A member of the RNA family "MIR824 microRNA precursor family", 550 nucleotides long.

[Rfam]
RNA sequence: CUUGAGUUGUCUCUCAUGUCUAGACCAUUUGUGAGAAGGGAGUUUUUGUUUGCACCAAUACCCACCAAUCUCUAUAUUUGUAAGAAGUAUUAUGCUCAAUUAAGGAAAAUAGUAAUUCAACAUACCACACUACCCUUUUAAGUAGUAUCAUCCUAUAUGUUAUCUGCUACCUUAGCUAAAUUUUGCGUUCUCAUGGUGCUGCAGUAGGGUUAGUUUCUUGUGUACCUCUAGAUAUACAUUCUCUUGCUGCGUAGGGUUCCCAAGCUGUCAAAACUAGUGAUCUGUUCCCCUUGAUAUUCUGAUCCUUCAGAAGUUAGGUAUAGAAGUAAGUCGAUUAAGUUCAUUCAUGACUUUUCCAGAUGUUGCAUACAUAACUUUUUUUCAUUUGUAUUCGAACUAGUCCAAGCCGAUUCUCAAAAUCAUAUAAAAUCAUUUACACCUUGGUCAUGGUAGCUAAGAAUAUUGUAUCUAAAAUUGGGGAGUGGGGAGAUGUUUGGUUAUAUUCCCUUCUCAUCGAUGGUCUAGAUGUGCGAGGUGACUCUCAUGGAGG
Dot-bracket structure: (((((((((((((.(((((((((((((((.(((((((((((((........(((.(.........((...(((.....................................................................................................................................................................................................................................................................................................................................................................................................................))).))....).)))........))))))))))))).))))))))))))))).)))))))))).....))).
Rfam 15.1 lists 31 matches to the family in 11 species.